[Rfam]
Nucleotides: 081
Base pairs, nucleotide, nucleotide: 003079004078005077006076008075009074010073011072012071013070014069015068016067018065019064020063021062022061023060024059025058027056032042034040035039045052
Number, partner (000 for none) and nucleotide at each position: 001000c002000a003079g004078g005077g006076a007000u008075g009074a010073g011072g012071u013070a014069g015068u016067a017000c018065a019064u020063u021062g022061u023060a024059u025058a026000c027056u028000u029000u030000u031000a032042g033000a034040g035039u036000c037000a038000c039035a040034c041000c042032c043000g044000a045052u046000c047000u048000u049000g050000g051000a052045g053000a054000a055000a056027a057000c058025u059024a060023u061022a062021c063020a064019g065018u066000c067016u068015a069014c070013u071012g072011u073010c074009u075008u076006u077005c078004c079003c080000a081000c

Overview
The family of this 81-nucleotide sequence from Phascolarctos cinereus is "let-7 microRNA precursor family". Taxonomically the source falls in Phascolarctos (Eukaryota, Gnathostomata, Euteleostomi, Diprotodontia). It scores 55 bits against the family's covariance model. Rfam's curators write: This family represents the microRNAs (miRNA) let-7 and mir-98. let-7 was identified from a study of developmental timing in C. elegans, and was later shown to be part of a much larger class of non-coding RNAs termed miRNAs. The family has 64 seed sequences and 8,694 matches in Rfam 15.1. The family is grouped with related families in Rfam's "let-7 microRNA precursor clan". Its family is annotated with RISC complex and miRNA-mediated post-transcriptional gene silencing in the Gene Ontology.